[Rfam]
RNA sequence: CUCUUGUCUGUUAUAAUACCAGUGAAUGUAUCUUAACUUCCCUGGCUUCGCUUUCAGACUACAUUGAAGUCCCUACUAUUAUCCUAGUUUGCUUAGUUAUGUACCUGACAUGUAGACUGGCAAAGUAGUGAGACAUUU
Numbered sequence: 001c002u003c004u005u006g007u008c009u010g011u012u013a014u015a016a017u018a019c020c021a022g023u024g025a026a027u028g029u030a031u032c033u034u035a036a037c038u039u040c041c042c043u044g045g046c047u048u049c050g051c052u053u054u055c056a057g058a059c060u061a062c063a064u065u066g067a068a069g070u071c072c073c074u075a076c077u078a079u080u081a082u083c084c085u086a087g088u089u090u091g092c093u094u095a096g097u098u099a100u101g102u103a104c105c106u107g108a109c110a111u112g113u114a115g116a117c118u119g120g121c122a123a124a125g126u127a128g129u130g131a132g133a134c135a136u137u138u
Stems, first nucleotide, its partner, number of pairs: 006059005019045004024040003027036001072132001074130006084120006